[Rfam]
RNA: mir-395 microRNA precursor family
Organism: Brassica carinata
Nucleotides: 114
Stems, first nucleotide, its partner, number of pairs: 005110005011104008019095002022093002024090007032082007
Number, partner (000 for none) and nucleotide at each position: 001000a002000u003000g004000c005110c006109a007108c008107c009106u010000u011104g012103a013102g014101u015100u016099c017098c018097c019095u020094u021000u022093a023092a024090c025089g026088c027087u028086u029085c030084a031000u032082u033081g034080u035079u036078c037077a038076u039000a040000c041000u042000u043000a044000g045000u046000u047000g048000u049000a050000u051000a052000a053000u054000a055000u056000c057000u058000a059000c060000a061000a062000g063000a064000u065000a066000a067000a068000u069000c070000a071000a072000u073000c074000a075000a076038a077037u078036g079035a080034a081033c082032a083000u084030u085029g086028a087027a088026g089025u090024g091000u092023u093022u094020g095019g096000g097018g098017g099016g100015g101014a102013c103012u104011c105000u106009a107008g108007g109006u110005g111000g112000c113000a114000u